This 210-nucleotide RNA from Streptomyces sp. Ru72 belongs to the Rfam family "Streptomyces RNA 1601".
From the family's description: Identified by deep sequencing of transcriptome at the end of exponential growth phase. Appears longer on northern blot than sequencing transcript.
It is annotated as a small RNA.
On this family, see Vockenhuber et al., RNA Biol 2011: "Deep sequencing-based identification of small non-coding RNAs in Streptomyces coelicolor".
Lineage of the source: Bacteria > Actinomycetota > Kitasatosporales > Streptomycetaceae > Streptomyces.
RNA sequence: GACGACCGGCCGGACACCUGGUUGCCCGGCCCACAAGUGGAGGCUCCGAUCUCCCACCUGGCCGCCCCGAGGGGCGGCGGGUCACCGGUCAGGCGGCCACCACCGUUCCGUACGGACGGUGGAGUCGCCCGAAAGCGCGCCCCGCGGUCCACCGCGGCGGUGCUCCGGAAAGCUCGGAGUCCCGCCUGUGUCCCGUCCGGGGCAUUUUUC
Numbered sequence: 001g002a003c004g005a006c007c008g009g010c011c012g013g014a015c016a017c018c019u020g021g022u023u024g025c026c027c028g029g030c031c032c033a034c035a036a037g038u039g040g041a042g043g044c045u046c047c048g049a050u051c052u053c054c055c056a057c058c059u060g061g062c063c064g065c066c067c068c069g070a071g072g073g074g075c076g077g078c079g080g081g082u083c084a085c086c087g088g089u090c091a092g093g094c095g096g097c098c099a100c101c102a103c104c105g106u107u108c109c110g111u112a113c114g115g116a117c118g119g120u121g122g123a124g125u126c127g128c129c130c131g132a133a134a135g136c137g138c139g140c141c142c143c144g145c146g147g148u149c150c151a152c153c154g155c156g157g158c159g160g161u162g163c164u165c166c167g168g169a170a171a172g173c174u175c176g177g178a179g180u181c182c183c184g185c186c187u188g189u190g191u192c193c194c195g196u197c198c199g200g201g202g203c204a205u206u207u208u209u210c
Stems, first nucleotide, its partner, number of pairs: 004090006012027002028083005034060002037057004041052002061078007092129003096126001100122008139203006145195003153190003156186005162180005